[Rfam]
Overview
The record is a 47-nucleotide RNA sequence from Rosistilla oblonga, which matches "Acido-Lenti-1 RNA" in Rfam. By type it is a small RNA. Taxonomically the source falls in Rosistilla (Bacteria, Pseudomonadati, Planctomycetota, Planctomycetia). The base pairs follow the family's consensus structure, which is taken from published work.
RNA sequence: CCUGAGGACUUGCGUCCCAGGCUACUGCAUGUCAUGGCUUCGCCAUU
Numbered sequence: 001c002c003u004g005a006g007g008a009c010u011u012g013c014g015u016c017c018c019a020g021g022c023u024a025c026u027g028c029a030u031g032u033c034a035u036g037g038c039u040u041c042g043c044c045a046u047u
Base pairs, nucleotide, nucleotide: 001021002020003019006017007016008015009014034046035045036044037043038042